RNA sequence: UUCUUAUCAAGAGCGACUGAGGGACCGGCCCUGUGACGUCGCGGCAACCCCCUGAAAAGGGAAGGUGCCAAAUCCUGCGAAACCAUGAGGUUUCGGGAGAUAAGGA
Numbered sequence: 001u002u003c004u005u006a007u008c009a010a011g012a013g014c015g016a017c018u019g020a021g022g023g024a025c026c027g028g029c030c031c032u033g034u035g036a037c038g039u040c041g042c043g044g045c046a047a048c049c050c051c052c053u054g055a056a057a058a059g060g061g062a063a064g065g066u067g068c069c070a071a072a073u074c075c076u077g078c079g080a081a082a083c084c085a086u087g088a089g090g091u092u093u094c095g096g097g098a099g100a101u102a103a104g105g106a
Stems, first nucleotide, its partner, number of pairs: 001106008013042005021031003025077001027075002043069004048065002050061004073098001078095006
Rfam assigns this 106-nucleotide RNA from Geotalea uraniireducens to the family "SAM riboswitch aptamer (S box leader)". The organism belongs to Geotalea uraniireducens, within Bacteria. Its family is annotated with regulation of gene expression in the Gene Ontology. Pairs were carried over by alignment from the consensus structure, which is taken from published work.